Nucleotides: 253
Base pairs, nucleotide, nucleotide: 007234008233009232010231016077017076018075019074093108094107095106096105098103124158125157126156127155191226192225193224194223195222197220198219199218201214202213203212204211237251238250239249240248241247
Number, partner (000 for none) and nucleotide at each position: 001000g002000g003000c004000u005000c006000c007234g008233g009232u010231g011000c012000g013000g014000c015000g016077g017076g018075c019074g020000a021000u022000c023000u024000c025000c026000c027000c028000a029000a030000g031000g032000a033000c034000g035000a036000c037000c038000a039000c040000g041000a042000g043000g044000g045000g046000a047000a048000a049000g050000a051000a052000a053000c054000c055000g056000g057000a058000c059000c060000g061000a062000a063000c064000c065000c066000c067000a068000c069000c070000c071000c072000u073000c074019c075018g076017c077016c078000c079000c080000u081000c082000u083000g084000a085000g086000g087000a088000c089000g090000c091000g092000c093108u094107c095106a096105c097000c098103c099000g100000c101000u102000u103098g104000a105096g106095u107094g108093a109000a110000u111000a112000u113000g114000c115000c116000c117000a118000a119000a120000c121000g122000g123000a124158c125157u126156g127155g128000c129000c130000a131000u132000g133000g134000g135000g136000c137000c138000g139000g140000u141000u142000g143000g144000u145000u146000g147000a148000u149000c150000u151000a152000c153000g154000c155127u156126c157125a158124g159000c160000g161000c162000g163000a164000c165000a166000c167000a168000c169000c170000a171000c172000a173000u174000c175000a176000c177000u178000g179000c180000u181000g182000a183000c184000a185000u186000a187000u188000g189000u190000c191226g192225g193224c194223c195222c196000c197220c198219g199218c200000c201214g202213g203212g204211a205000c206000g207000g208000c209000a210000a211204u212203c213202c214201c215000g216000a217000a218199g219198c220197g221000a222195g223194g224193g225192c226191c227000u228000g229000a230000c231010c232009a233008c234007c235000a236000a237251g238250g239249a240248a241247g242000u243000c244000g245000c246000c247241c248240u249239u250238c251237c252000c253000g